[Rfam]
RNA sequence: GCAACUCUGGAAAGCAGCACGUCGGGUCUGACUCCCCGAGGUGCUCACCGAAGGUGCAAGCCGGCCUGCUCCGCCCCACGGCGGUCAGCCACCGGUGAAUCUCUCAGGUCCAUCACAGAGCGGGGGAG
Numbered sequence: 001g002c003a004a005c006u007c008u009g010g011a012a013a014g015c016a017g018c019a020c021g022u023c024g025g026g027u028c029u030g031a032c033u034c035c036c037c038g039a040g041g042u043g044c045u046c047a048c049c050g051a052a053g054g055u056g057c058a059a060g061c062c063g064g065c066c067u068g069c070u071c072c073g074c075c076c077c078a079c080g081g082c083g084g085u086c087a088g089c090c091a092c093c094g095g096u097g098a099a100u101c102u103c104u105c106a107g108g109u110c111c112a113u114c115a116c117a118g119a120g121c122g123g124g125g126g127a128g
Stems, first nucleotide, its partner, number of pairs: 002123001005120005016045004047109003050105002054103001056101001060096005

Shown here is a 128-nucleotide RNA sequence from Nesterenkonia sandarakina, a member of the family "Glycine riboswitch aptamer". A search with the family's covariance model found it, with a score of 41 bits.